[Rfam]
RNA sequence: CCUGUCUUAUUGCAGACAGUUUCCUAUUCCGACAUGCACUUUCACCGCUGGUGUCUGAUGUAUGAAGCUUGGAGGACAACGUGAGCAACGUGUCCGUAAGGACUGGAGAGCAAACCGUGAGGGGGACUCAACUCUGGAAGCAUCGAACCGGAGCGGGAG
Numbered sequence: 001c002c003u004g005u006c007u008u009a010u011u012g013c014a015g016a017c018a019g020u021u022u023c024c025u026a027u028u029c030c031g032a033c034a035u036g037c038a039c040u041u042u043c044a045c046c047g048c049u050g051g052u053g054u055c056u057g058a059u060g061u062a063u064g065a066a067g068c069u070u071g072g073a074g075g076a077c078a079a080c081g082u083g084a085g086c087a088a089c090g091u092g093u094c095c096g097u098a099a100g101g102a103c104u105g106g107a108g109a110g111c112a113a114a115c116c117g118u119g120a121g122g123g124g125g126a127c128u129c130a131a132c133u134c135u136g137g138a139a140g141c142a143u144c145g146a147a148c149c150g151g152a153g154c155g156g157g158a159g
Base pairs, nucleotide, nucleotide: 002019003018004017005016006015007014028073029072030071031070032069033064034063035062036061037060038059092103093102094101095100106129107128108127115122116121133152134151135150136149137148
RNA: Group II catalytic intron D1-D4-7